Small nucleolar RNA U2-19: a 79-nucleotide RNA from Catagonus wagneri.
Gene Ontology terms of the family: RNA processing and nucleolus.
A reference for the family is Tycowski et al. (2004), "Guide RNAs with 5' Caps and Novel Box C/D snoRNA-like Domains for Modification of snRNAs in Metazoa", Curr Biol.
[Rfam]
RNA sequence: AAUCGAUGAUGAAAAUAGCCAAGUCUGAGCAUCCAAAGACCUCCAGCCUGCCUAAUGCAUGGCCCCCGUAGUUCUGAGA
Numbered sequence: 001a002a003u004c005g006a007u008g009a010u011g012a013a014a015a016u017a018g019c020c021a022a023g024u025c026u027g028a029g030c031a032u033c034c035a036a037a038g039a040c041c042u043c044c045a046g047c048c049u050g051c052c053u054a055a056u057g058c059a060u061g062g063c064c065c066c067c068g069u070a071g072u073u074c075u076g077a078g079a
Stems, first nucleotide, its partner, number of pairs: 029058004037049002040046001